[Rfam]
Rfam assigns this 123-nucleotide RNA from Streptomyces chumphonensis to the family "Streptomyces sRNA scr5239". Taxonomically the source falls in Streptomyces (Bacteria, Actinomycetota, Actinomycetes, Streptomycetaceae). It is annotated as a small RNA. For this family Rfam cites "Streptomyces coelicolor sRNA scr5239 inhibits agarase expression by direct base pairing to the dagA coding region" (Vockenhuber and Suess, Microbiology, 2012). It scores 106 bits against the family's covariance model.
RNA sequence: CCUCCGCCCUCCCCGCACAGGAGGGUGGAACGAGAUCCGCGGCGCUCUCUGCCCUGACCGCGCCCGGGUCUCAGGUCGCUCCGGGCUGCGGUGCCGGGUGAGUUGAGGGUCUCACCCAGGCGC
Numbered sequence: 001c002c003u004c005c006g007c008c009c010u011c012c013c014c015g016c017a018c019a020g021g022a023g024g025g026u027g028g029a030a031c032g033a034g035a036u037c038c039g040c041g042g043c044g045c046u047c048u049c050u051g052c053c054c055u056g057a058c059c060g061c062g063c064c065c066g067g068g069u070c071u072c073a074g075g076u077c078g079c080u081c082c083g084g085g086c087u088g089c090g091g092u093g094c095c096g097g098g099u100g101a102g103u104u105g106a107g108g109g110u111c112u113c114a115c116c117c118a119g120g121c122g123c
Stems, first nucleotide, its partner, number of pairs: 003029004008024005032072005038066002041064002044061002046057002077093004082088002096117007